[Rfam]
RNA: Hepatitis C virus stem-loop SL8001 RNA
Organism: Orthohepacivirus hominis
RNA sequence: CUAGCUCGCAAGGCCGUUAACCAUAUCAACUCCGUAUGGGAGGACUUGCUAGCAGACA
Numbered sequence: 001c002u003a004g005c006u007c008g009c010a011a012g013g014c015c016g017u018u019a020a021c022c023a024u025a026u027c028a029a030c031u032c033c034g035u036a037u038g039g040g041a042g043g044a045c046u047u048g049c050u051a052g053c054a055g056a057c058a
Stems, first nucleotide, its partner, number of pairs: 004053003008049005014043002021039006